[Rfam]
About this RNA
The family of this 156-nucleotide RNA sequence from Kytococcus aerolatus is "c-di-AMP riboswitch aptamer (ydaO/yuaA leader)". NCBI's taxonomy places the organism under Bacteria, Bacillati, Actinomycetota, Kytococcaceae, Kytococcus. It scores 48 bits against the family's covariance model.

RNA sequence: GGGAGCGCCUCGCCGGAGAAUCCGGGCACUGGUGACCGUGGGGAAACCACUUCUGCCGUUCCUCGGAACGGCUCGGGGUGAAGCCGCCUCCAGCGGCCGGGGCACCUGACGCUCCGAACCCGACAGCUCACCCCACCGGCGGAACCGUCAGGAAGG
Numbered sequence: 001g002g003g004a005g006c007g008c009c010u011c012g013c014c015g016g017a018g019a020a021u022c023c024g025g026g027c028a029c030u031g032g033u034g035a036c037c038g039u040g041g042g043g044a045a046a047c048c049a050c051u052u053c054u055g056c057c058g059u060u061c062c063u064c065g066g067a068a069c070g071g072c073u074c075g076g077g078g079u080g081a082a083g084c085c086g087c088c089u090c091c092a093g094c095g096g097c098c099g100g101g102g103c104a105c106c107u108g109a110c111g112c113u114c115c116g117a118a119c120c121c122g123a124c125a126g127c128u129c130a131c132c133c134c135a136c137c138g139g140c141g142g143a144a145c146c147g148u149c150a151g152g153a154a155g156g
Base pairs, nucleotide, nucleotide: 001037002036038136039135040134041133042132043131048075076121077120078119084096085095086094087093099115100114101113102112